[Rfam]
Nucleotides: 161
Stems, first nucleotide, its partner, number of pairs: 020047008029038001056087005065076004088103005109150005120137007
Number, partner (000 for none) and nucleotide at each position: 001000a002000u003000u004000a005000u006000a007000g008000u009000u010000a011000a012000a013000g014000c015000g016000c017000c018000c019000g020047a021046a022045c023044u024043u025042g026041a027040g028000u029038g030000a031000u032000a033000u034000a035000g036000u037000u038029c039000a040027u041026u042025u043024a044023a045022g046021u047020u048000g049000a050000c051000g052000a053000g054000g055000a056087u057086g058085g059084g060083g061000a062000g063000a064000a065076u066075c067074g068073a069000a070000u071000c072000u073068u074067c075066g076065g077000c078000g079000g080000a081000u082000g083060c084059c085058c086057c087056a088103c089102g090101g091100u092099a093000c094000c095000g096000c097000a098000c099092u100091a101090c102089c103088g104000u105000u106000a107000g108000c109150g110149g111148u112147u113146g114000g115000u116000a117000a118000a119000a120137g121136c122135a123134g124133a125132a126131a127000g128000u129000g130000a131126u132125u133124u134123c135122u136121g137120u138000c139000a140000c141000a142000a143000a144000g145000c146113c147112a148111a149110u150109c151000u152000g153000g154000u155000g156000u157000u158000a159000a160000a161000a